[Rfam]
RNA sequence: GUCAUUCUUAAUGAUGUAGAUGGAGUAAAGCUUUUGAGACUUCCAUUUGCUGAUGGGACAUGAC
Numbered sequence: 001g002u003c004a005u006u007c008u009u010a011a012u013g014a015u016g017u018a019g020a021u022g023g024a025g026u027a028a029a030g031c032u033u034u035u036g037a038g039a040c041u042u043c044c045a046u047u048u049g050c051u052g053a054u055g056g057g058a059c060a061u062g063a064c
Stems, first nucleotide, its partner, number of pairs: 001064005016050010031038002